[Rfam]
RNA sequence: ACACCAGUACGGGCCCCUCUGACAACUCGAUCCGAGUUGUGAUGUCGGACUGGACGA
Numbered sequence: 001a002c003a004c005c006a007g008u009a010c011g012g013g014c015c016c017c018u019c020u021g022a023c024a025a026c027u028c029g030a031u032c033c034g035a036g037u038u039g040u041g042a043u044g045u046c047g048g049a050c051u052g053g054a055c056g057a
Stems, first nucleotide, its partner, number of pairs: 006051003010047003022040007
Dot-bracket structure: .....(((.(((.........(((((((.....)))))))....))).)))......